[Rfam]
RNA sequence: UGCCACUUGGCAAAAAUCAGGCUGCUCAAAGCAGGAGCUAGUAGCAAUGUCGAACGUUCUUGAAGCCAAUAAGGAU
Numbered sequence: 001u002g003c004c005a006c007u008u009g010g011c012a013a014a015a016a017u018c019a020g021g022c023u024g025c026u027c028a029a030a031g032c033a034g035g036a037g038c039u040a041g042u043a044g045c046a047a048u049g050u051c052g053a054a055c056g057u058u059c060u061u062g063a064a065g066c067c068a069a070u071a072a073g074g075a076u
Base pairs, nucleotide, nucleotide: 001012002011003010004009020067021066022065023064032062033061034060035059036058037057038056044051
Description: RT-18 RNA: a 76-nucleotide RNA from Anamdongvirus LBR48. It scores 59 bits against the family's covariance model. The base pairs follow the family's consensus structure, which is taken from published work.